RNA: Potassium channel RNA editing signal
RNA sequence: GUGGGUUAUGGAGAUAUGGUUCCGAAGACUUACAUUGGAAUGUUUGUGGGUGCUUUGUGUGCUUUAGCUGGUGUACUGACGAUAGCGUUACCAGUGCCUGUCAUCGUAUCCAAU
Number, nucleotide and partner (000 for none) at each position: 001g114002u113003g000004g111005g110006u000007u108008a107009u106010g105011g104012a000013g102014a101015u100016a099017u000018g097019g000020u000021u094022c000023c000024g000025a000026a000027g000028a000029c000030u000031u000032a000033c000034a000035u000036u000037g077038g076039a000040a074041u000042g000043u000044u000045u000046g000047u000048g000049g063050g062051u061052g000053c000054u000055u000056u000057g000058u000059g000060u000061g051062c050063u049064u000065u000066a000067g000068c000069u000070g000071g000072u000073g000074u040075a000076c038077u037078g000079a000080c000081g000082a000083u000084a000085g000086c000087g000088u000089u000090a000091c000092c000093a000094g021095u000096g000097c018098c000099u016100g015101u014102c013103a000104u011105c010106g009107u008108a007109u000110c005111c004112a000113a002114u001